RNA: 6S / SsrS RNA
Organism: Methylophaga lonarensis
RNA sequence: CUAACCCUGCGGUGCUCGACAGCGUACAUCGUGUGUCUUGAGCCGAUAAGCAAAUGCUAAGGAGAUCAGCACUGAGUCGGGAGUGCAAGCCCGCUUGACGGGAAGCCCAAAGAUUCACCAUGGUUUCCACUUGAACCUGAUGGUUCAAGAACCCCGUUCGCAUCGACACUGUGGGGCCUUU
Numbered sequence: 001c002u003a004a005c006c007c008u009g010c011g012g013u014g015c016u017c018g019a020c021a022g023c024g025u026a027c028a029u030c031g032u033g034u035g036u037c038u039u040g041a042g043c044c045g046a047u048a049a050g051c052a053a054a055u056g057c058u059a060a061g062g063a064g065a066u067c068a069g070c071a072c073u074g075a076g077u078c079g080g081g082a083g084u085g086c087a088a089g090c091c092c093g094c095u096u097g098a099c100g101g102g103a104a105g106c107c108c109a110a111a112g113a114u115u116c117a118c119c120a121u122g123g124u125u126u127c128c129a130c131u132u133g134a135a136c137c138u139g140a141u142g143g144u145u146c147a148a149g150a151a152c153c154c155c156g157u158u159c160g161c162a163u164c165g166a167c168a169c170u171g172u173g174g175g176g177c178c179u180u181u
Stems, first nucleotide, its partner, number of pairs: 005176010017165003036150002039147006061128003065124004073117006085106002090102004